RNA: Y RNA
Organism: Mandrillus leucophaeus
RNA sequence: GGCUGGUUGGAGUGCAGCAGUGUUUACAAUUAAUUGAUCAGAAUCAGUUAUACAUUUUUUGUUUCCUUCUCCACUCCUGCUGCUUCAGUUGACUAGGCCUAA
Numbered sequence: 001g002g003c004u005g006g007u008u009g010g011a012g013u014g015c016a017g018c019a020g021u022g023u024u025u026a027c028a029a030u031u032a033a034u035u036g037a038u039c040a041g042a043a044u045c046a047g048u049u050a051u052a053c054a055u056u057u058u059u060u061g062u063u064u065c066c067u068u069c070u071c072c073a074c075u076c077c078u079g080c081u082g083c084u085u086c087a088g089u090u091g092a093c094u095a096g097g098c099c100u101a102a
Stems, first nucleotide, its partner, number of pairs: 001099002003096006010090002014086001016081005022076001028064002032060002